RNA sequence: UGUCUCCUCUAUUCUCCUCCAAGAAAAUAGAUUCAGCCCGCUCUCUGAGCGGGCUUUUUUUU
Numbered sequence: 001u002g003u004c005u006c007c008u009c010u011a012u013u014c015u016c017c018u019c020c021a022a023g024a025a026a027a028u029a030g031a032u033u034c035a036g037c038c039c040g041c042u043c044u045c046u047g048a049g050c051g052g053g054c055u056u057u058u059u060u061u062u
Base pairs, nucleotide, nucleotide: 008031009030010029011028012027013024014023035055036054037053038052039051040050041049042048

Shown here is a 62-nucleotide RNA from Massilia violaceinigra, a member of the family "Betaproteobacteria toxic small RNA". A search with the family's covariance model found it, with a score of 64 bits. Overexpression in amino aid rich medium attenuates growth, suggesting role in repressing amino acid intake and metabolism. Taxonomically the source falls in Massilia (Bacteria, Pseudomonadati, Pseudomonadota, Betaproteobacteria).